[Rfam]
This 70-nucleotide sequence from Hydrogenoanaerobacterium saccharovorans belongs to the Rfam family "Streptococcus sRNA SpF59 (ldcC RNA)". The literature on the family includes a 2012 paper in PLoS Pathog by Mann et al., "Control of virulence by small RNAs in Streptococcus pneumoniae". It is annotated as a small RNA.

RNA sequence: UGACCAUUUCCUUUGUGCAGCAGAUGCAUAAAGAAAUUAAGGCCAUACGGACAGCCGGGUCAAAUGCCGA
Number, nucleotide and partner (000 for none) at each position: 001u062002g061003a060004c059005c058006a037007u036008u035009u034010c033011c000012u000013u000014u000015g000016u000017g000018c000019a000020g000021c000022a000023g000024a000025u000026g000027c000028a000029u000030a000031a000032a000033g010034a009035a008036a007037u006038u000039a000040a000041g000042g000043c000044c000045a000046u000047a000048c000049g000050g000051a000052c000053a000054g000055c000056c000057g000058g005059g004060u003061c002062a001063a000064a000065u000066g000067c000068c000069g000070a000